[Rfam]
RNA sequence: CCAGUAAAAGGUAAACCUGCCGAAAGGCAGGGGCGCAAAGUCUCAGAUCCGGGAAGCUUUUCAGGAUGGCUGGACUGCCUGGU
Dot-bracket structure: ..((......((...((((((....))))))..[))..((((.((((((...............))).])))))))..))...
RNA: c-di-GMP-I-GGC riboswitch aptamer